[Rfam]
RNA sequence: UGAACUCUGAAGAGCCACCGGAAGUCGUCAUCCGGUGCACCGAAGGAGCAAACCGGCCACGCAUCGCGCGUUGCCGGUGAAUCUCUCAGGUCCAGCACAGAGGGGGUAAC
Numbered sequence: 001u002g003a004a005c006u007c008u009g010a011a012g013a014g015c016c017a018c019c020g021g022a023a024g025u026c027g028u029c030a031u032c033c034g035g036u037g038c039a040c041c042g043a044a045g046g047a048g049c050a051a052a053c054c055g056g057c058c059a060c061g062c063a064u065c066g067c068g069c070g071u072u073g074c075c076g077g078u079g080a081a082u083c084u085c086u087c088a089g090g091u092c093c094a095g096c097a098c099a100g101a102g103g104g105g106g107u108a109a110c
Stems, first nucleotide, its partner, number of pairs: 005102005016037007039091003042087002046085003052078006
RNA: Glycine riboswitch aptamer